RNA sequence: UUCAAAUGAUGAUUGUUUAUUUGCUACUCCUAAUUGUCUAUGGCGAUAAAUAUAUCCACCAAAAUUGUUAUUCUGAUGAA
Numbered sequence: 001u002u003c004a005a006a007u008g009a010u011g012a013u014u015g016u017u018u019a020u021u022u023g024c025u026a027c028u029c030c031u032a033a034u035u036g037u038c039u040a041u042g043g044c045g046a047u048a049a050a051u052a053u054a055u056c057c058a059c060c061a062a063a064a065u066u067g068u069u070a071u072u073c074u075g076a077u078g079a080a
Stems, first nucleotide, its partner, number of pairs: 001080004